[Rfam]
RNA: Small nucleolar RNA SNORD67
Organism: Chlorocebus sabaeus
RNA sequence: UUCUGGUGUGAGUGGAACCCCUGUUGGGGUUUGCAUCCAGGUGGAUGAAGCAACCAAACAAGAACAAAGGGGACAGAAAUAAGGGCAGAGAGGCCUCUGGGCACCAU
Numbered sequence: 001u002u003c004u005g006g007u008g009u010g011a012g013u014g015g016a017a018c019c020c021c022u023g024u025u026g027g028g029g030u031u032u033g034c035a036u037c038c039a040g041g042u043g044g045a046u047g048a049a050g051c052a053a054c055c056a057a058a059c060a061a062g063a064a065c066a067a068a069g070g071g072g073a074c075a076g077a078a079a080u081a082a083g084g085g086c087a088g089a090g091a092g093g094c095c096u097c098u099g100g101g102c103a104c105c106a107u
Stems, first nucleotide, its partner, number of pairs: 004106001006104003020062001022060002024057004029051003034047005